[Rfam]
RNA sequence: UAGUAGUAAUUGGGGGUCAUUAUAGAAGCGUGCUCGUCGCGACCCCUGCCAGCCCUUUUCAGGGCUGUAAUUUUACA
Numbered sequence: 001u002a003g004u005a006g007u008a009a010u011u012g013g014g015g016g017u018c019a020u021u022a023u024a025g026a027a028g029c030g031u032g033c034u035c036g037u038c039g040c041g042a043c044c045c046c047u048g049c050c051a052g053c054c055c056u057u058u059u060c061a062g063g064g065c066u067g068u069a070a071u072u073u074u075a076c077a
Base pairs, nucleotide, nucleotide: 013046014045015044016043017042018041021077023075024074025073026072027071028040029039030038050067051066052065053064054063055062056061
Rfam assigns this 77-nucleotide sequence from Parnassius apollo to the family "Mammalian CPEB3 ribozyme". From the family's description: The mammalian CPEB3 ribozyme is a self cleaving RNA located in the second intron of the CPEB3 gene which belongs to a family of genes regulating messenger RNA polyadenylation. This ribozyme is highly conserved and found only in mammals. The CPEB3 ribozyme is structurally and biochemically related to the human hepatitis delta virus (HDV) ribozyme and the HDV ribozyme is proposed to have arisen from the human transcriptome. There is currently only one other known self cleaving ribozyme in mammals, the CoTC motif. Its family is annotated with RNA nuclease activity in the Gene Ontology. A search with the family's covariance model found it, with a score of 54 bits. The family's consensus secondary structure is taken from published work.